U7 small nuclear RNA: a 63-nucleotide RNA from Molossus molossus. Animal histone pre-mRNAs are spliced by a different mechanism than nuclear pre-mRNAs and self-splicing introns. This processing involves the U7 snRNP, which contains only one RNA species: U7. The 5' end of U7 RNA is thought to base-pair to a conserved spacer element downstream of the cleavage site in histone pre-mRNA. This family contains a number of annotated U7 pseudogenes.
RNA sequence: AAGUGCUUACAGCUCUUUUUGAAUUUGUCUUAUAGGUCUUCUGGUUUUUGCCAGAAGGCCCUA
Numbered sequence: 001a002a003g004u005g006c007u008u009a010c011a012g013c014u015c016u017u018u019u020u021g022a023a024u025u026u027g028u029c030u031u032a033u034a035g036g037u038c039u040u041c042u043g044g045u046u047u048u049u050g051c052c053a054g055a056a057g058g059c060c061c062u063a
Stems, first nucleotide, its partner, number of pairs: 035060011